[Rfam]
RNA sequence: AAACCAUGUUGAGGACACUCUAAAAGAAGGUCUUUGAAACGUUCCAUGCACCUAGAAAAUGAUUCAUUGGGUUUUUGACAAAACUGGAGUAUGUCGUUCCUAAGUUU
Number, nucleotide and partner (000 for none) at each position: 001a107002a000003a105004c104005c000006a101007u000008g000009u000010u000011g000012a000013g000014g000015a000016c000017a000018c000019u000020c000021u000022a000023a000024a000025a000026g000027a000028a000029g000030g000031u000032c000033u000034u000035u000036g000037a000038a000039a000040c000041g000042u000043u000044c000045c000046a000047u000048g000049c000050a000051c000052c000053u000054a000055g000056a000057a074058a073059a000060u071061g000062a000063u000064u000065c000066a000067u000068u000069g000070g000071g060072u000073u058074u057075u000076u000077g000078a000079c000080a000081a000082a000083a000084c000085u000086g000087g000088a000089g000090u000091a000092u000093g000094u000095c000096g000097u000098u000099c000100c000101u006102a000103a000104g004105u003106u000107u001
RNA: Plant small nucleolar RNA R71